[Rfam]
RNA sequence: GGGGGUGCAGUGAUUAUAAAACAUUCCUUGUACUGACAGGAGAUCCCUGUGAACGACUCCUAUACACCCAUAGAAUCUGAGCAUC
Number, nucleotide and partner (000 for none) at each position: 001g000002g000003g085004g084005g000006u083007g082008c000009a000010g000011u000012g000013a000014u000015u000016a000017u000018a000019a000020a000021a000022c000023a000024u000025u000026c000027c000028u000029u000030g000031u000032a000033c000034u000035g000036a000037c000038a000039g000040g000041a000042g000043a000044u000045c000046c000047c000048u000049g000050u000051g000052a000053a000054c000055g000056a000057c000058u000059c000060c000061u000062a000063u000064a000065c000066a000067c000068c000069c000070a000071u000072a000073g000074a000075a000076u000077c000078u000079g000080a000081g000082c007083a006084u004085c003
Rfam assigns this 85-nucleotide RNA sequence from Triticum aestivum to the family "Small nucleolar RNA snoR8a". Taxonomically the source falls in Triticum (Eukaryota, Euphyllophyta, Liliopsida, Poaceae). The family's consensus secondary structure was predicted with WAR. It is annotated as a C/D-box small nucleolar RNA.